[Rfam]
The record is a 75-nucleotide RNA from Caenimonas aquaedulcis, which matches "SAH (S-adenosyl-L-homocysteine) riboswitch aptamer" in Rfam. Pairs were carried over by alignment from the consensus structure, which is taken from published work. A search with the family's covariance model found it, with a score of 59 bits.
RNA sequence: CCAUCCGAGGAGCGUUGCAGCAUCUUUCCAUCGAUGCGAGGCUCGGAUCUAUCCAGGCAACGACGCUCACCCACU
Dot-bracket structure: ..((((((............((((........))))......))))))...........................

For this family Rfam cites "Riboswitches that sense S-adenosylhomocysteine and activate genes involved in coenzyme recycling" (Wang et al., Mol Cell, 2008). Taxonomically the source falls in Caenimonas (Bacteria, Pseudomonadota, Burkholderiales, Comamonadaceae).